RNA: MIR2118 microRNA precursor family
RNA sequence: GCAGGGAAGAGGAAGAAAGAGAGAGCAUAAGAGUGCUAGGAAUGGGAAUAUGGAGGAAAGCUUAACUCUUCUAUUUUCACCUCUAGUGUUGGAGGUGCAAAAUUUGAUUGUGUGCUUUCCUGAUGUCUUCCAUUCCUAUGAUUCUUGAGCACUCCUUCCUCUUCUGUUUCGCU
Numbered sequence: 001g002c003a004g005g006g007a008a009g010a011g012g013a014a015g016a017a018a019g020a021g022a023g024a025g026c027a028u029a030a031g032a033g034u035g036c037u038a039g040g041a042a043u044g045g046g047a048a049u050a051u052g053g054a055g056g057a058a059a060g061c062u063u064a065a066c067u068c069u070u071c072u073a074u075u076u077u078c079a080c081c082u083c084u085a086g087u088g089u090u091g092g093a094g095g096u097g098c099a100a101a102a103u104u105u106g107a108u109u110g111u112g113u114g115c116u117u118u119c120c121u122g123a124u125g126u127c128u129u130c131c132a133u134u135c136c137u138a139u140g141a142u143u144c145u146u147g148a149g150c151a152c153u154c155c156u157u158c159c160u161c162u163u164c165u166g167u168u169u170c171g172c173u
Base pairs, nucleotide, nucleotide: 009164010163011162012161013160015158016157017156021154022153023152026149028147029146030145031144032143033142034141037138038137039136040135041134042133043132044131045130046129047128049125050124051123053121055120056119057118058117059116060115061114